[Rfam]
RNA: msiK RNA
Organism: Streptomyces mashuensis
RNA sequence: GGACCACUCCCUCUACAACGGAUCGUCCGGCACGUUCCUGCCGGUGAAGGGACCACGAG
Numbered sequence: 001g002g003a004c005c006a007c008u009c010c011c012u013c014u015a016c017a018a019c020g021g022a023u024c025g026u027c028c029g030g031c032a033c034g035u036u037c038c039u040g041c042c043g044g045u046g047a048a049g050g051g052a053c054c055a056c057g058a059g
Stems, first nucleotide, its partner, number of pairs: 009051004014046002027044006